Source information
This 114-nucleotide sequence from Leptotrombidium deliense belongs to the Rfam family "Potassium channel RNA editing signal". A search with the family's covariance model found it, with a score of 76 bits. It is annotated as a cis-regulatory element. The organism belongs to Leptotrombidium, within Eukaryota. The family's consensus secondary structure is taken from published work.

[Rfam]
Nucleotides: 114
Stems, first nucleotide, its partner, number of pairs: 001114002004111002007108005014101003018097001020095001037077002040074001050062001
Number, partner (000 for none) and nucleotide at each position: 001114g002113u003000u004111g005110g006000a007108u008107a009106c010105g011104g012000c013000g014101a015100c016099a017000u018097g019000a020095g021000a022000c023000c024000a025000g026000u027000u028000g029000g030000g031000g032000c033000g034000u035000g036000g037077g038076g039000u040074a041000a042000a043000u044000u045000a046000g047000u048000g049000g050062g051000a052000u053000c054000u055000u056000u057000g058000u059000g060000c061000g062050c063000a064000c065000u066000u067000g068000c069000a070000g071000g072000u073000g074040u075000u076038c077037u078000g079000a080000c081000u082000c083000u084000g085000g086000c087000a088000u089000u090000a091000c092000c093000u094000g095020u096000g097018c098000c099016u100015g101014u102000a103000a104011u105010u106009g107008u108007a109000u110005c111004u112000a113002a114001u